Annotation
Shown here is a 50-nucleotide RNA sequence from Desulfovibrio falkowii, a member of the family "Guanidine-II riboswitch aptamer (mini-ykkC)". Simpler in structure and has fewer highly conserved nucleotide positions than the ykkC-yxkD leader. Despite this each of its two stem-loop structures directly bind free guanidine. Therefore, mini-ykkC RNA motif represents a distinct class of guanidine-sensing RNAs. The organism belongs to Desulfovibrio, within Bacteria. Gene Ontology term of the family: regulation of gene expression. A reference for the family is Weinberg et al. (2007), "Identification of 22 candidate structured RNAs in bacteria using the CMfinder comparative genomics pipeline", Nucleic Acids Res. A search with the family's covariance model found it, with a score of 41 bits.
RNA sequence: CAGGGAGGACGACCUCCCCCAUCAGGGGCAUCUGAUCCGGGACGACCCGG
Number, nucleotide and partner (000 for none) at each position: 001c000002a000003g018004g017005g016006a015007g014008g013009a000010c000011g000012a000013c008014c007015u006016c005017c004018c003019c000020c000021a000022u000023c000024a000025g000026g000027g000028g000029c000030a000031u000032c000033u000034g000035a000036u000037c050038c049039g048040g047041g046042a000043c000044g000045a000046c041047c040048c039049g038050g037